[Rfam]
Rfam assigns this 151-nucleotide RNA from Anguilla anguilla to the family "Small nucleolar RNA U109". The organism belongs to Anguilla, within Eukaryota. The family's RNA type in Rfam is H/ACA-box small nucleolar RNA. Its family is annotated with RNA processing and nucleolus in the Gene Ontology.
RNA sequence: UUGCAUGUUGCGGCCCUUGGGCCGAAAUUCCAUCUCUCUCUCUGCUGUGGGGAGUGUGGAAGUGUUCUUAACAUGCUAUAGUAACUGGAGUUAUCAGGGCCACCAGUCUCUAAAGUACAGGCUGAGUCGGUAGUAUAAAACUCCAACACCG
Numbered sequence: 001u002u003g004c005a006u007g008u009u010g011c012g013g014c015c016c017u018u019g020g021g022c023c024g025a026a027a028u029u030c031c032a033u034c035u036c037u038c039u040c041u042c043u044g045c046u047g048u049g050g051g052g053a054g055u056g057u058g059g060a061a062g063u064g065u066u067c068u069u070a071a072c073a074u075g076c077u078a079u080a081g082u083a084a085c086u087g088g089a090g091u092u093a094u095c096a097g098g099g100c101c102a103c104c105a106g107u108c109u110c111u112a113a114a115g116u117a118c119a120g121g122c123u124g125a126g127u128c129g130g131u132a133g134u135a136u137a138a139a140a141c142u143c144c145a146a147c148a149c150c151g
Base pairs, nucleotide, nucleotide: 003076004075005074006073007072008071029058031056032055033054035052036051037050038049087144088143089142090141099131100130103126104124105123106122107121108120109119